A member of the RNA family "nhaA-I RNA" from Acidovorax temperans, 52 nucleotides long. The family's RNA type in Rfam is riboswitch. Rfam describes the family as follows. Acidobacteria, Alphaproteobacteria, Betaproteobacteria and Gammaproteobacteria, Verrucomicrobia, cand. division NC10. The organism belongs to Acidovorax, within Bacteria.
RNA sequence: GGGUGUCUGCGCAAAUCGGCGCAACAGGUACAGCGAUGGUCGGGCCGCCACG
Dot-bracket structure: ....((.(((((......)))))))........((.((((......))))))